[Rfam]
RNA sequence: ACGGCGAAUGCCAGUGGAACUACAUUGGACUUCAGUGUCGGCGGUUCGAGUCCGCCUCCGGCUUCGGCUGGGUAGCUCAGUCGGGUAGAGCAUGAGGCUGUUUCACGACCAACUCGUCGCCGUGAC
Number, nucleotide and partner (000 for none) at each position: 001a000002c122003g121004g120005c119006g118007a117008a000009u000010g000011c000012c000013a000014g106015u105016g104017g103018a102019a101020c000021u000022a000023c096024a000025u000026u000027g000028g000029a000030c000031u000032u000033c094034a093035g000036u000037g000038u000039c000040g056041g055042c054043g053044g052045u000046u000047c085048g000049a000050g000051u000052c044053c043054g042055c041056c040057u072058c071059c070060g069061g068062c067063u000064u000065c000066g000067g062068c061069u060070g059071g058072g057073u000074a000075g091076c090077u089078c088079a000080g000081u000082c000083g000084g000085g047086u000087a000088g078089a077090g076091c075092a000093u034094g033095a000096g023097g000098c000099u000100g000101u019102u018103u017104c016105a015106c014107g000108a000109c000110c000111a000112a000113c000114u000115c000116g000117u007118c006119g005120c004121c003122g002123u000124g000125a000126c000
This 126-nucleotide sequence from Novosphingobium sp. Rr 2-17 belongs to the Rfam family "Y RNA-like". From the family's description: In Deinococcus radiodurans Rsr is tethered via Y RNA to the exoribonuclease PNPase and channels single-stranded RNA into the PNPase cavity. Rsr and Y RNA enhance degradation of structured RNAs by PNPase. This role could be conserved, as Rsr and ncRNAs called YrlA and YrlB (Y RNA like) also associate with PNPase in an evolutionary distant bacterium Salmonella Typhimurium. Pairs were carried over by alignment from the consensus structure, which is taken from published work. Rfam 15.1 lists 124 matches to the family in 99 species.